[Rfam]
RNA: TPP riboswitch aptamer (THI element)
RNA sequence: AACCUCACUGGGGGGAGCCGAUGGUCGGCUGAGAGGUCCCAAGUCUCGGGACGACCCCUGGAACCUGAUCCGGUUGAUACCGGCGUAGGGAUCAGUGACCCAUGCACGA
Numbered sequence: 001a002a003c004c005u006c007a008c009u010g011g012g013g014g015g016a017g018c019c020g021a022u023g024g025u026c027g028g029c030u031g032a033g034a035g036g037u038c039c040c041a042a043g044u045c046u047c048g049g050g051a052c053g054a055c056c057c058c059u060g061g062a063a064c065c066u067g068a069u070c071c072g073g074u075u076g077a078u079a080c081c082g083g084c085g086u087a088g089g090g091a092u093c094a095g096u097g098a099c100c101c102a103u104g105c106a107c108g109a
Stems, first nucleotide, its partner, number of pairs: 006097005011058004017029005036052005064089004070083004